[Rfam]
RNA sequence: CCUCUGGACUAUUAUAUCAAACGAAAGUAGCGUUGCGAAAUCGGAUAGGAAGAACGAGGAA
Numbered sequence: 001c002c003u004c005u006g007g008a009c010u011a012u013u014a015u016a017u018c019a020a021a022c023g024a025a026a027g028u029a030g031c032g033u034u035g036c037g038a039a040a041u042c043g044g045a046u047a048g049g050a051a052g053a054a055c056g057a058g059g060a061a
Stems, first nucleotide, its partner, number of pairs: 001059004009048005022043003030036002
RNA: RAGATH-18 RNA